[Rfam]
RNA: Plastid-psbN 5UTR RNA
RNA sequence: UGCGACACCCAUCAAAGGGGUCGUUCCCCACCCAGGAGCUACUUUACCAUAUUUCGAACCA
Numbered sequence: 001u002g003c004g005a006c007a008c009c010c011a012u013c014a015a016a017g018g019g020g021u022c023g024u025u026c027c028c029c030a031c032c033c034a035g036g037a038g039c040u041a042c043u044u045u046a047c048c049a050u051a052u053u054u055c056g057a058a059c060c061a
Stems, first nucleotide, its partner, number of pairs: 017045005023039005